[Rfam]
RNA sequence: CCAAAGGCUCUUUUCAGAGCCACUUGCACUAAUGAAAAAGCUGUG
Numbered sequence: 001c002c003a004a005a006g007g008c009u010c011u012u013u014u015c016a017g018a019g020c021c022a023c024u025u026g027c028a029c030u031a032a033u034g035a036a037a038a039a040g041c042u043g044u045g
Base pairs, nucleotide, nucleotide: 006021007020008019009018010017011016
Shown here is a 45-nucleotide RNA from Carlito syrichta, a member of the family "Histone 3' UTR stem-loop". By type it is a cis-regulatory element. The family has 50 seed sequences and 44,596 matches in Rfam 15.1. The match comes from Rfam's covariance-model search (36 bits). The organism belongs to Carlito, within Eukaryota. Rfam links the family to the GO term mRNA 3'-end processing by stem-loop binding and cleavage.